[Rfam]
RNA sequence: CAAAAGGGCGCUCGUCUUGUCCACGUUCCUUCUAAUGGAAUGACGUACAGACGCACUGCGCCGUUGAAUUGCUUUCGAGCGGGGCGUGCUCUUAUUGCCGCUCUUAUUAGUUUCCAACGAGCCCAGUGGUGUAUGGCUUUGCAUAUGCAGCGUGUAAUUUUUGGAAUGGGGUCAGUUGUACACUAUGGCUGUCUG
Dot-bracket structure: .......((((((((((...............................)))))(((((.((((((..................................................)))).)).)))))(((((((......))))))))))))......................(.(..((.(...).)).).)
Numbered sequence: 001c002a003a004a005a006g007g008g009c010g011c012u013c014g015u016c017u018u019g020u021c022c023a024c025g026u027u028c029c030u031u032c033u034a035a036u037g038g039a040a041u042g043a044c045g046u047a048c049a050g051a052c053g054c055a056c057u058g059c060g061c062c063g064u065u066g067a068a069u070u071g072c073u074u075u076c077g078a079g080c081g082g083g084g085c086g087u088g089c090u091c092u093u094a095u096u097g098c099c100g101c102u103c104u105u106a107u108u109a110g111u112u113u114c115c116a117a118c119g120a121g122c123c124c125a126g127u128g129g130u131g132u133a134u135g136g137c138u139u140u141g142c143a144u145a146u147g148c149a150g151c152g153u154g155u156a157a158u159u160u161u162u163g164g165a166a167u168g169g170g171g172u173c174a175g176u177u178g179u180a181c182a183c184u185a186u187g188g189c190u191g192u193c194u195g
Stems, first nucleotide, its partner, number of pairs: 008153005013053005054128005060122002062119004129148007176195001178193001181191002184188001

U11 spliceosomal RNA: a 195-nucleotide RNA sequence from Drosophila busckii. A search with the family's covariance model found it, with a score of 54 bits. Pairs were carried over by alignment from the consensus structure, which is taken from published work. The source organism's lineage runs through Eukaryota, Eumetazoa, Neoptera, Ephydroidea and Dorsilopha. The literature on the family includes a 1988 paper in Proc Natl Acad Sci U S A by Montzka and Steitz, "Additional low-abundance human small nuclear ribonucleoproteins: U11, U12, etc".